[Rfam]
RNA sequence: UGGAUGAAACAGGGGUGCCGUACGGAUGGGCCGUGCGGCUGAGAGAGUCCCUUCGAACCCGAUCCGGCUAGUACCGGCGUGGGAAGUUUCAUGGUUACCGAA
Numbered sequence: 001u002g003g004a005u006g007a008a009a010c011a012g013g014g015g016u017g018c019c020g021u022a023c024g025g026a027u028g029g030g031c032c033g034u035g036c037g038g039c040u041g042a043g044a045g046a047g048u049c050c051c052u053u054c055g056a057a058c059c060c061g062a063u064c065c066g067g068c069u070a071g072u073a074c075c076g077g078c079g080u081g082g083g084a085a086g087u088u089u090c091a092u093g094g095u096u097a098c099c100g101a102a
Base pairs, nucleotide, nucleotide: 006090007089008088009087010086011052012051013050014049016046017039018038019037020036021035022034023033024032025031058083059082060081061080064077065076066075067074
RNA: TPP riboswitch aptamer (THI element)
Organism: Cupriavidus basilensis